[Rfam]
Nucleotides: 366
Stems, first nucleotide, its partner, number of pairs: 001362004007356001010353001013330006020042002023039006047349003051346005056236004063268004068232005073087005088102001089100004103227002108225002110221003124168002126164005133157002176194002179191003196216001197214007240288003250277004259273005295314008
Number, partner (000 for none) and nucleotide at each position: 001362u002361g003360a004359g005000u006000a007356g008000u009000a010353c011000a012000u013330g014329c015328a016327a017326u018325c019000g020042c021041u022000g023039c024038u025037a026036a027035c028034a029000c030000u031000a032000g033000a034028u035027g036026u037025u038024a039023g040000g041021a042020g043000a044000g045000g046000a047349a048348a049347g050000u051346c052345g053344g054343a055342g056236c057235u058234c059233c060000a061000u062000a063268g064267g065266g066265c067000a068232g069231g070230g071229u072228g073087c074086u075085g076084g077083u078000u079000a080000a081000c082000g083077g084076c085075c086074a087073g088102u089100c090099a091098a092097g093000g094000c095000g096000a097092c098091u099090u100089g101000a102088a103227g104226g105000a106000u107000a108225g109224u110221g111220c112219a113000a114000c115000a116000g117000a118000g119000a120000u121000a122000u123000a124168c125167c126164g127163c128162c129161a130160g131000a132000a133157g134156u135000u136000a137000u138000u139000u140000a141000a142000c143000u144000g145000a146000g147000u148000u149000a150000a151000u152000u153000u154000u155000u156134a157133u158000g159000a160130c161129u162128g163127g164126u165000a166000a167125g168124g169000g170000u171000g172000g173000a174000a175000a176194g177193g178000c179191g180190a181189g182000g183000u184000a185000a186000g187000a188000g189181c190180u191179c192000a193177c194176c195000a196216g197214c198213a199212u200211g201210g202209u203208g204000g205000u206000g207000a208203c209202a210201u211200c212199a213198u214197g215000g216196c217000u218000a219112u220111g221110u222000a223000a224109a225108c226104c227103c228072c229071a230070c231069c232068u233059g234058g235057a236056g237000c238000a239000a240288g241287a242286c243000c244000g245000a246000g247000u248000a249000a250277c251276g252275g253274c254000a255000u256000u257000a258000u259273g260272g261271g262270a263269u264000u265066g266065c267064c268063c269263g270262u271261c272260c273259c274253g275252c276251c277250g278000u279000g280000u281000g282000g283000u284000g285000u286242g287241u288240c289000g290000c291000u292000u293000g294000a295314a296313c297312u298311u299310a300309c301308u302307g303000g304000u305000a306000a307302c308301a309300g310299u311298a312297a313296g314295u315000c316000u317000a318000g319000a320000u321000a322000g323000a324000u325018g326017a327016u328015u329014g330013c331000u332000u333000a334000a335000u336000a337000c338000a339000g340000a341000a342055c343054u344053c345052c346051g347049c348048u349047u350000a351000c352000g353010g354000a355000c356007u357000a358000u359004c360003u361002c362001a363000c364000a365000a366000c
Shown here is a 366-nucleotide RNA from Clostridium celatum, a member of the family "Bacterial RNase P class A". The family's RNA type in Rfam is ribozyme. A search with the family's covariance model found it, with a score of 273 bits. Rfam's curators write: Ribonuclease P (RNase P) is a ubiquitous endoribonuclease, found in archaea, bacteria and eukarya as well as chloroplasts and mitochondria. Its best characterised activity is the generation of mature 5'-ends of tRNAs by cleaving the 5'-leader elements of precursor-tRNAs. Cellular RNase Ps are ribonucleoproteins. Lineage of the source: Bacteria > Bacillati > Clostridia > Eubacteriales > Clostridium celatum.